[Rfam]
RNA sequence: CUUAUAUUGAGUAUAUGGGGGUAAAACAUGAUUAUUCAACGAAAGAAGUAACAGAAAAUAAAAAAGGAGGCUUAUGCCUCCUUUUUUUAGCCUUU
Numbered sequence: 001c002u003u004a005u006a007u008u009g010a011g012u013a014u015a016u017g018g019g020g021g022u023a024a025a026a027c028a029u030g031a032u033u034a035u036u037c038a039a040c041g042a043a044a045g046a047a048g049u050a051a052c053a054g055a056a057a058a059u060a061a062a063a064a065a066g067g068a069g070g071c072u073u074a075u076g077c078c079u080c081c082u083u084u085u086u087u088u089a090g091c092c093u094u095u
Stems, first nucleotide, its partner, number of pairs: 008038001010036003016031001018029001020027001061086011
RNA: sraA